[Rfam]
RNA sequence: GGCGAUAAACGGUGCGUGGAAUAAGCGUUGUGGACCCGGGGGCGGUACCCGGCGCCUCCAUAUUCUCUUGCGGCCCUUCGGGGCCGCCGCGGCCUGAUUCAGACUUCGCGGCGUUCGCCGCUACGUCAUCAGGACGCGAUCACGGGGGGAUUUGCGGGGGCGAAAUAGACUCGACACGCGUGGUAAAGACCCAUCUUUUGCCCGGCAUUGUACCGCCGUUAUCGGGCUAAUUUUUAAAUGCGAACGAUAACAACGUUGCAUUCGCUGCAGCUGCCUAA
Numbered sequence: 001g002g003c004g005a006u007a008a009a010c011g012g013u014g015c016g017u018g019g020a021a022u023a024a025g026c027g028u029u030g031u032g033g034a035c036c037c038g039g040g041g042g043c044g045g046u047a048c049c050c051g052g053c054g055c056c057u058c059c060a061u062a063u064u065c066u067c068u069u070g071c072g073g074c075c076c077u078u079c080g081g082g083g084c085c086g087c088c089g090c091g092g093c094c095u096g097a098u099u100c101a102g103a104c105u106u107c108g109c110g111g112c113g114u115u116c117g118c119c120g121c122u123a124c125g126u127c128a129u130c131a132g133g134a135c136g137c138g139a140u141c142a143c144g145g146g147g148g149g150a151u152u153u154g155c156g157g158g159g160g161c162g163a164a165a166u167a168g169a170c171u172c173g174a175c176a177c178g179c180g181u182g183g184u185a186a187a188g189a190c191c192c193a194u195c196u197u198u199u200g201c202c203c204g205g206c207a208u209u210g211u212a213c214c215g216c217c218g219u220u221a222u223c224g225g226g227c228u229a230a231u232u233u234u235u236a237a238a239u240g241c242g243a244a245c246g247a248u249a250a251c252a253a254c255g256u257u258g259c260a261u262u263c264g265c266u267g268c269a270g271c272u273g274c275c276u277a278a
Stems, first nucleotide, its partner, number of pairs: 001202005014192001016190002026180003030177003036052005053162007203218004
permuted transfer-messenger RNA: a 278-nucleotide RNA from Acidocella sp. MX-AZ02. Pairs were carried over by alignment from the consensus structure, which is taken from published work. Lineage of the source: Bacteria > Alphaproteobacteria > Acetobacterales > Acidocellaceae > Acidocella.